[Rfam]
RNA sequence: GAUCAAUGAUGACAAUAGAUAAAUCGAAGCAUCAGAAGACUUUCCAGUGUCUCUGAUGCGUGAUCUCUGUAUUUCUCUCU
Numbered sequence: 001g002a003u004c005a006a007u008g009a010u011g012a013c014a015a016u017a018g019a020u021a022a023a024u025c026g027a028a029g030c031a032u033c034a035g036a037a038g039a040c041u042u043u044c045c046a047g048u049g050u051c052u053c054u055g056a057u058g059c060g061u062g063a064u065c066u067c068u069g070u071a072u073u074u075c076u077c078u079c080u
Stems, first nucleotide, its partner, number of pairs: 029059005037050001039048002
Annotation:
A member of the RNA family "Small nucleolar RNA U2-19" from Lynx pardinus, 80 nucleotides long. The family has 29 seed sequences and 1,147 matches in Rfam 15.1. The literature on the family includes a 2004 paper in Curr Biol by Tycowski et al., "Guide RNAs with 5' Caps and Novel Box C/D snoRNA-like Domains for Modification of snRNAs in Metazoa".